A member of the RNA family "U7 small nuclear RNA" from Mus spicilegus, 63 nucleotides long. For this family Rfam cites "3' end processing of mouse histone pre-mRNA: evidence for additional base-pairing between U7 snRNA and pre-mRNA" (Spycher et al., Nucleic Acids Res, 1994). From the family's description: Animal histone pre-mRNAs are spliced by a different mechanism than nuclear pre-mRNAs and self-splicing introns. This processing involves the U7 snRNP, which contains only one RNA species: U7. The 5' end of U7 RNA is thought to base-pair to a conserved spacer element downstream of the cleavage site in histone pre-mRNA. This family contains a number of annotated U7 pseudogenes.

RNA sequence: GAGUGAACCCAGAUCUUUUAGAAUUUUUCUAGCAGCUUUUCUGACUUUGGUCAGAAAACCUAU
Number, nucleotide and partner (000 for none) at each position: 001g000002a000003g000004u000005g000006a000007a000008c000009c000010c000011a000012g000013a000014u000015c000016u000017u000018u000019u000020a000021g000022a000023a000024u000025u000026u000027u000028u000029c000030u000031a000032g000033c000034a000035g060036c000037u058038u057039u056040u055041c054042u053043g052044a051045c050046u000047u000048u000049g000050g045051u044052c043053a042054g041055a040056a039057a038058a037059c000060c035061u000062a000063u000